[Rfam]
RNA sequence: GGAAAAUUAUCGAUACAGGUGGGACGUCUAGACUUCAAAUCGAGGAAAGGCUAUUAAACAAUCCUUAGUGGGUUCGACUCCCAUAUUUUUCC
Number, nucleotide and partner (000 for none) at each position: 001g092002g091003a090004a089005a088006a087007u000008u085009a084010u000011c026012g025013a000014u023015a000016c021017a000018g000019g000020u000021g016022g000023g014024a000025c012026g011027u045028c044029u043030a000031g041032a040033c000034u000035u000036c000037a000038a000039a000040u032041c031042g000043a029044g028045g027046a000047a066048a065049g064050g063051c000052u000053a000054u000055u000056a000057a000058a000059c000060a000061a000062u000063c050064c049065u048066u047067a000068g000069u083070g082071g081072g080073u000074u000075c000076g000077a000078c000079u000080c072081c071082c070083a069084u009085a008086u000087u006088u005089u004090u003091c002092c001

A member of the RNA family "Selenocysteine transfer RNA" from Polynucleobacter kasalickyi, 92 nucleotides long. It scores 60 bits against the family's covariance model. NCBI's taxonomy places the organism under Bacteria, Pseudomonadota, Betaproteobacteria, Burkholderiaceae, Polynucleobacter. The base pairs follow the family's consensus structure, which is taken from published work. Gene Ontology term of the family: triplet codon-amino acid adaptor activity.